[Rfam]
RNA sequence: CCACCGGCACCGCCGGACCGGGGGGCGCGGGAGGGGUUCCGGAGCCGGGGACCCACAGGUACCCCGGGGUGAAUCGGCGCCUCUUGCCCGUGGAUCUCUCCGCAGGUGAGACGUGCCGUAGGGCGACUUCCCGCCCGAACCCGUCAGCUAACCCGGUAGGCGUCUGGAAGAAGGAGU
Numbered sequence: 001c002c003a004c005c006g007g008c009a010c011c012g013c014c015g016g017a018c019c020g021g022g023g024g025g026c027g028c029g030g031g032a033g034g035g036g037u038u039c040c041g042g043a044g045c046c047g048g049g050g051a052c053c054c055a056c057a058g059g060u061a062c063c064c065c066g067g068g069g070u071g072a073a074u075c076g077g078c079g080c081c082u083c084u085u086g087c088c089c090g091u092g093g094a095u096c097u098c099u100c101c102g103c104a105g106g107u108g109a110g111a112c113g114u115g116c117c118g119u120a121g122g123g124c125g126a127c128u129u130c131c132c133g134c135c136c137g138a139a140c141c142c143g144u145c146a147g148c149u150a151a152c153c154c155g156g157u158a159g160g161c162g163u164c165u166g167g168a169a170g171a172a173g174g175a176g177u
Base pairs, nucleotide, nucleotide: 001042002041044157045156046155047154048153049152054066067142068141069140075118076117077116078115079114080113121136122135123134124133

c-di-AMP riboswitch aptamer (ydaO/yuaA leader): a 177-nucleotide RNA from Thermomonospora umbrina. From the family's description: This family represents a conserved RNA structure found upstream of the ydaO and yuaA genes in Bacillus subtilis and related genes in other bacteria.